[Rfam]
RNA sequence: GGGCUGGCUUUAGCUCAGCGGUUACUUCGACAGUGCGUUCUGCUUGGUACCUGCCACUCGUGGUUGUGUUCGAGCUCCGCCACCAACUGCUUACAAAACAUGUGAGUGGUUGGUUCGAGACCCGCGGGCGCUCUCCAGCCCUUUU
Number, nucleotide and partner (000 for none) at each position: 001g000002g140003g139004c138005u137006g136007g135008c000009u000010u000011u000012a000013g129014c128015u127016c126017a000018g125019c124020g123021g122022u000023u000024a000025c000026u119027u118028c117029g116030a115031c000032a000033g000034u000035g000036c000037g000038u000039u000040c000041u000042g000043c000044u000045u000046g000047g000048u000049a000050c000051c000052u000053g000054c000055c000056a000057c000058u000059c000060g000061u000062g000063g000064u000065u000066g000067u000068g000069u000070u000071c000072g000073a000074g000075c000076u000077c000078c000079g000080c000081c000082a000083c000084c000085a000086a000087c000088u000089g000090c000091u000092u000093a000094c000095a000096a000097a000098a000099c000100a000101u000102g000103u000104g000105a000106g000107u000108g000109g000110u000111u000112g000113g000114u000115u030116c029117g028118a027119g026120a000121c000122c021123c020124g019125c018126g016127g015128g014129c013130g000131c000132u000133c000134u000135c007136c006137a005138g004139c003140c002141c000142u000143u000144u000145u000

Vault RNA: a 145-nucleotide sequence from Cricetulus griseus. Taxonomically the source falls in Cricetulus (Eukaryota, Eumetazoa, Chordata, Tetrapoda). Rfam 15.1 lists 2,873 matches to the family in 431 species. Rfam's curators write: This family of RNAs are found as part of the enigmatic vault ribonucleoprotein complex. The complex consists of a major vault protein (MVP), two minor vault proteins (VPARP and TEP1), and several small untranslated RNA molecules. It has been suggested that the vault complex is involved in drug resistance. Pairs were carried over by alignment from the consensus structure, which is taken from published work.